[Rfam]
RNA sequence: UUGGAAGCGAUGAUUAAAGGCCCAUUUGAUCAAGUGGAUUGUAAUGAGCUCAGAUAUUAAAGUUCUCUUUACAAGAGAGAAUAAAAGCCAUAAAUAUGAUCCAU
Numbered sequence: 001u002u003g004g005a006a007g008c009g010a011u012g013a014u015u016a017a018a019g020g021c022c023c024a025u026u027u028g029a030u031c032a033a034g035u036g037g038a039u040u041g042u043a044a045u046g047a048g049c050u051c052a053g054a055u056a057u058u059a060a061a062g063u064u065c066u067c068u069u070u071a072c073a074a075g076a077g078a079g080a081a082u083a084a085a086a087g088c089c090a091u092a093a094a095u096a097u098g099a100u101c102c103a104u
Base pairs, nucleotide, nucleotide: 002103003102004101005100
The record is a 104-nucleotide RNA sequence from Lactuca sativa, which matches "Small nucleolar RNA Z103" in Rfam. The match comes from Rfam's covariance-model search (45 bits). On this family, see Chen et al., Nucleic Acids Res 2003: "The high diversity of snoRNAs in plants: identification and comparative study of 120 snoRNA genes from Oryza sativa". It is annotated as a C/D-box small nucleolar RNA.